Notes:
A member of the RNA family "NoRC associated RNA, pRNA" from Canis lupus, 81 nucleotides long. Pairs were carried over by alignment from the consensus structure, which is taken from published work. The literature on the family includes a 2008 paper in EMBO Rep by Mayer et al., "The structure of NoRC-associated RNA is crucial for targeting the chromatin remodelling complex NoRC to the nucleolus".
[Rfam]
RNA sequence: CCGUGGGGCAGGUUUUGGGACAGUUGGCCGUGUCACGGUCCCGGGAGGUCGUGACCUGUGGCUGGUCCCCGCCGGCGAGCU
Numbered sequence: 001c002c003g004u005g006g007g008g009c010a011g012g013u014u015u016u017g018g019g020a021c022a023g024u025u026g027g028c029c030g031u032g033u034c035a036c037g038g039u040c041c042c043g044g045g046a047g048g049u050c051g052u053g054a055c056c057u058g059u060g061g062c063u064g065g066u067c068c069c070c071g072c073c074g075g076c077g078a079g080c081u
Stems, first nucleotide, its partner, number of pairs: 004078001006076001009074001011073002017070003026062001028060001029058002032055005
The organism belongs to Canis lupus, within Eukaryota.